[Rfam]
RNA sequence: CAGAAAAACAUGAUUGAGUGCAGCAUUGAUGACACUAACACCAUGAAACAUCUUCCUGAGAGACACAAGUGAGAGAGAAUCUUCAUCAACGCUGCACUCAAUGAUGUUUCUC
Numbered sequence: 001c002a003g004a005a006a007a008a009c010a011u012g013a014u015u016g017a018g019u020g021c022a023g024c025a026u027u028g029a030u031g032a033c034a035c036u037a038a039c040a041c042c043a044u045g046a047a048a049c050a051u052c053u054u055c056c057u058g059a060g061a062g063a064c065a066c067a068a069g070u071g072a073g074a075g076a077g078a079a080u081c082u083u084c085a086u087c088a089a090c091g092c093u094g095c096a097c098u099c100a101a102u103g104a105u106g107u108u109u110c111u112c
Stems, first nucleotide, its partner, number of pairs: 006109006013102012026089003030085003
This 112-nucleotide sequence from Cajanus cajan belongs to the Rfam family "MIR397 microRNA precursor family". It scores 67 bits against the family's covariance model. Its family is annotated with RISC complex and miRNA-mediated post-transcriptional gene silencing in the Gene Ontology. The source organism's lineage runs through Eukaryota, Viridiplantae, Tracheophyta, rosids and Cajanus.